Description: This 103-nucleotide sequence from Gracilibacillus dipsosauri belongs to the Rfam family "Purine riboswitch aptamer". Taxonomically the source falls in Gracilibacillus (Bacteria, Bacillota, Bacilli, Caryophanales). The base pairs follow the family's consensus structure, which is taken from published work. Its family is annotated with purine nucleobase biosynthetic process in the Gene Ontology.
RNA sequence: UUAAUAAUCAUUACCUUCCGUCGUAUAAUAUUGGGAAUAUGGCUCAAAAGUUUCUACCAGAGCACCGUUAAAUGCUCUGACUACGAGGAGGAUGAAGUUAUUA
Number, nucleotide and partner (000 for none) at each position: 001u000002u000003a000004a000005u000006a000007a000008u000009c000010a000011u000012u000013a000014c000015c000016u000017u000018c000019c088020g000021u086022c085023g084024u083025a082026u000027a000028a000029u049030a000031u047032u046033g045034g044035g043036a000037a000038u000039a000040u000041g000042g000043c035044u034045c033046a032047a031048a000049a029050g000051u000052u000053u000054c000055u000056a000057c000058c079059a078060g077061a076062g075063c074064a073065c000066c000067g000068u000069u000070a000071a000072a000073u064074g063075c062076u061077c060078u059079g058080a000081c000082u025083a024084c023085g022086a021087g000088g019089a000090g000091g000092a000093u000094g000095a000096a000097g000098u000099u000100a000101u000102u000103a000